[Rfam]
RNA sequence: UGAAUAUUUUCGCUGAAUCCAUGUUUUUUGGAAUGGGAGAACCAAUCUUUUGGGGUGAAUCACUAAUUUUAGUGUAGGGUAUUAAUCCGAAUCCGUCAGCUAAUCUCGUAAGCGUUAUUAAGUGGGGAA
Numbered sequence: 001u002g003a004a005u006a007u008u009u010u011c012g013c014u015g016a017a018u019c020c021a022u023g024u025u026u027u028u029u030g031g032a033a034u035g036g037g038a039g040a041a042c043c044a045a046u047c048u049u050u051u052g053g054g055g056u057g058a059a060u061c062a063c064u065a066a067u068u069u070u071a072g073u074g075u076a077g078g079g080u081a082u083u084a085a086u087c088c089g090a091a092u093c094c095g096u097c098a099g100c101u102a103a104u105c106u107c108g109u110a111a112g113c114g115u116u117a118u119u120a121a122g123u124g125g126g127g128a129a
Stems, first nucleotide, its partner, number of pairs: 011114004018032003033109006043052002053094003061074004077088004

A member of the RNA family "c-di-AMP riboswitch aptamer (ydaO/yuaA leader)" from Ureibacillus massiliensis, 129 nucleotides long. The source organism's lineage runs through Bacteria, Bacilli, Caryophanaceae, Ureibacillus and Ureibacillus massiliensis. Its family is annotated with regulation of gene expression and cyclic-di-AMP binding in the Gene Ontology.